[Rfam]
RNA sequence: UCAUUUAAGUAAUCGCUGCGAUGCUAGACAUCGUAGAGGAAAGUCCAUGCUCACACGAUCCUGAGAUGGUCGUAGUGUUCGUGCUAGAUGAAACAAUAAGUCUAGGCAGUGAGAGCUGACGGCAGGUCCCUAUGCUAAGGCGUCGCGCUAUGCAUACACCUUGAAAGUGCCACAGAGACGAGCUCAUAAGGAAACUUAUGAGGUGGAACGCGGUAAACCCCACGAGUGAGAAACCCAAAUUUUGGUAGGGGCACUUGUUGCGCGGAAUUGAACGUAGCAACGAGGCGAACUUGUUCGCAGACAGAUGAUUACUACCGGAGUACGAGGCGUGAGCCGUUGGAGUACGAAGGAACAGAACAUGGCUUAUGAAU
Numbered sequence: 001u002c003a004u005u006u007a008a009g010u011a012a013u014c015g016c017u018g019c020g021a022u023g024c025u026a027g028a029c030a031u032c033g034u035a036g037a038g039g040a041a042a043g044u045c046c047a048u049g050c051u052c053a054c055a056c057g058a059u060c061c062u063g064a065g066a067u068g069g070u071c072g073u074a075g076u077g078u079u080c081g082u083g084c085u086a087g088a089u090g091a092a093a094c095a096a097u098a099a100g101u102c103u104a105g106g107c108a109g110u111g112a113g114a115g116c117u118g119a120c121g122g123c124a125g126g127u128c129c130c131u132a133u134g135c136u137a138a139g140g141c142g143u144c145g146c147g148c149u150a151u152g153c154a155u156a157c158a159c160c161u162u163g164a165a166a167g168u169g170c171c172a173c174a175g176a177g178a179c180g181a182g183c184u185c186a187u188a189a190g191g192a193a194a195c196u197u198a199u200g201a202g203g204u205g206g207a208a209c210g211c212g213g214u215a216a217a218c219c220c221c222a223c224g225a226g227u228g229a230g231a232a233a234c235c236c237a238a239a240u241u242u243u244g245g246u247a248g249g250g251g252c253a254c255u256u257g258u259u260g261c262g263c264g265g266a267a268u269u270g271a272a273c274g275u276a277g278c279a280a281c282g283a284g285g286c287g288a289a290c291u292u293g294u295u296c297g298c299a300g301a302c303a304g305a306u307g308a309u310u311a312c313u314a315c316c317g318g319a320g321u322a323c324g325a326g327g328c329g330u331g332a333g334c335c336g337u338u339g340g341a342g343u344a345c346g347a348a349g350g351a352a353c354a355g356a357a358c359a360u361g362g363c364u365u366a367u368g369a370a371u
Stems, first nucleotide, its partner, number of pairs: 005370002007367001008313007016036006041365003045362005050230005055073004060069002079225005084105006106120001107118004121220002124161004132155004139149003167218002169214003183202008234250003254284007285298005315350002320345004
RNA: Bacterial RNase P class B
Organism: Savagea serpentis